[Rfam]
Nucleotides: 403
Base pairs, nucleotide, nucleotide: 016034017033018032019031020030021029035400036399037398038397044379045378047376050359051358055079056078057077058076059075060074064072065071086355087354088353090124091123095118096117097116098115099114100113101111102110103109128145129144130143131142132141148351149350150349151348152347153346154345155344184330185329186328190318191317192316193315194314195313196312197311198310201306202305203304204303205302206225207224208223209222210221211220229277230276231275232274238268239267240266241265242264248258249257250256289294365374366373381395382394383393384392
Number, partner (000 for none) and nucleotide at each position: 001000g002000g003000u004000a005000g006000u007000a008000g009000c010000a011000g012000c013000g014000a015000a016034g017033a018032g019031g020030g021029g022000u023000g024000a025000g026000a027000a028000g029021c030020c031019c032018c033017u034016c035400c036399g037398c038397c039000g040000g041000a042000a043000a044379g045378g046000a047376c048000c049000a050359g051358g052000g053000u054000u055079u056078c057077c058076u059075g060074g061000c062000a063000a064072c065071u066000u067000c068000a069000a070000u071065a072064g073000g074060c075059c076058a077057g078056g079055a080000g081000u082000u083000a084000g085000c086355c087354g088353g089000u090124c091123c092000u093000a094000a095118g096117g097116c098115g099114g100113g101111g102110c103109c104000u105000a106000a107000u108000a109103g110102g111101c112000a113100c114099c115098c116097g117096c118095c119000g120000a121000a122000a123091g124090g125000g126000a127000a128145a129144c130143g131142g132141g133000u134000u135000a136000a137000u138000a139000u140000u141132c142131c143130c144129g145128u146000g147000c148351c149350g150349c151348g152347g153346g154345g155344g156000u157000a158000g159000g160000c161000u162000c163000u164000g165000c166000g167000g168000c169000a170000a171000c172000g173000c174000a175000g176000g177000c178000c179000c180000c181000g182000u183000c184330c185329c186328c187000g188000a189000c190318g191317c192316c193315u194314c195313g196312g197311g198310a199000u200000a201306g202305g203304g204303c205302g206225g207224g208223c209222g210221g211220g212000a213000c214000c215000a216000c217000c218000g219000u220211c221210c222209c223208g224207c225206u226000u227000a228000a229277c230276c231275g232274u233000c234000g235000a236000a237000g238268g239267c240266c241265g242264g243000g244000g245000a246000g247000u248258g249257c250256c251000g252000u253000a254000a255000c256250g257249g258248c259000g260000a261000g262000a263000a264242c265241c266240g267239g268238c269000c270000g271000a272000a273000g274232g275231c276230g277229g278000g279000a280000a281000u282000a283000g284000c285000c286000g287000g288000g289294g290000g291000u292000u293000u294289c295000c296000c297000c298000g299000g300000u301000c302205c303204g304203c305202c306201u307000g308000a309000u310198u311197c312196c313195u314194g315193g316192g317191g318190c319000c320000c321000g322000u323000g324000a325000a326000a327000a328186g329185g330184g331000g332000a333000c334000g335000g336000g337000g338000a339000a340000c341000g342000a343000g344155c345154c346153c347152c348151c349150g350149c351148g352000c353088c354087c355086g356000u357000a358051c359050c360000g361000a362000g363000a364000a365374c366373c367000g368000a369000c370000g371000c372000a373366g374365g375000u376047g377000c378045u379044c380000c381395u382394g383393g384392g385000u386000g387000a388000a389000a390000a391000g392384c393383c394382c395381a396000a397038g398037g399036c400035g401000g402000c403000u